This 339-nucleotide RNA sequence from Yersinia pseudotuberculosis belongs to the Rfam family "Yersinia sRNA 35".
[Rfam]
RNA sequence: UUGCGCGUGAGCUAAGGGAUCAACAGGCCGAUUUUUCAAACCGCGAGCUGAAUUUUCAAGCACUGACUUGUGCCAUCGCUCAGUAUACAAACACAAUAUAUAGUGGGUGGGUGUUGGACAGAUAACAAGAUAGUGAGUAUUGAGGCUUUUAGCAAGUGAACAAAACGGGAUAAUUGUGUGGAUAACUUGGGGGUUAAUUGUUACGAAUGCCUUAUAAGCUGCGCCAUUACUGGGACUCACUACUUAUCCUUCUGGGGGAUAAGAUUUUGCGGAAAAUCUUAAAAGUUUGAUCGUUUGCCGCUUUAUUAAACAUUCUAAAAGGACCCUGUAAUUUAUCGC
Numbered sequence: 001u002u003g004c005g006c007g008u009g010a011g012c013u014a015a016g017g018g019a020u021c022a023a024c025a026g027g028c029c030g031a032u033u034u035u036u037c038a039a040a041c042c043g044c045g046a047g048c049u050g051a052a053u054u055u056u057c058a059a060g061c062a063c064u065g066a067c068u069u070g071u072g073c074c075a076u077c078g079c080u081c082a083g084u085a086u087a088c089a090a091a092c093a094c095a096a097u098a099u100a101u102a103g104u105g106g107g108u109g110g111g112u113g114u115u116g117g118a119c120a121g122a123u124a125a126c127a128a129g130a131u132a133g134u135g136a137g138u139a140u141u142g143a144g145g146c147u148u149u150u151a152g153c154a155a156g157u158g159a160a161c162a163a164a165a166c167g168g169g170a171u172a173a174u175u176g177u178g179u180g181g182a183u184a185a186c187u188u189g190g191g192g193g194u195u196a197a198u199u200g201u202u203a204c205g206a207a208u209g210c211c212u213u214a215u216a217a218g219c220u221g222c223g224c225c226a227u228u229a230c231u232g233g234g235a236c237u238c239a240c241u242a243c244u245u246a247u248c249c250u251u252c253u254g255g256g257g258g259a260u261a262a263g264a265u266u267u268u269g270c271g272g273a274a275a276a277u278c279u280u281a282a283a284a285g286u287u288u289g290a291u292c293g294u295u296u297g298c299c300g301c302u303u304u305a306u307u308a309a310a311c312a313u314u315c316u317a318a319a320a321g322g323a324c325c326c327u328g329u330a331a332u333u334u335a336u337c338g339c
Base pairs, nucleotide, nucleotide: 003301004300005299007298008297009296010295011294012293018292019291020290021289022288023287024285030278031277032276033275034274035273041272042271043270044269045268046267047266049058050057051056060073061072062071063070076110077109078108079107080106081105082104084102085101086100087099112127113126114125115124116123131242132241133240134239135238136237137236138235140234141233143231144230150226152224153223155220156219157218167211168210170208171207174206175205176204177203178202183196184195185194186193187192243263244262245261246260247259248258249257250256251255

Rfam's curators put it in the seed alignment. The family's consensus secondary structure was predicted with RNAfold. The family's RNA type in Rfam is small RNA.